chrB-b RNA: a 46-nucleotide RNA sequence.

RNA sequence: CGGGGGACAUGCAGACUCCCCGCGAGACUUCGCGUCCAAGUUCUGC
Numbered sequence: 001c002g003g004g005g006g007a008c009a010u011g012c013a014g015a016c017u018c019c020c021c022g023c024g025a026g027a028c029u030u031c032g033c034g035u036c037c038a039a040g041u042u043c044u045g046c
Stems, first nucleotide, its partner, number of pairs: 001022006011046005026036003

By type it is a cis-regulatory element. Pairs were carried over by alignment from the consensus structure, which is taken from published work.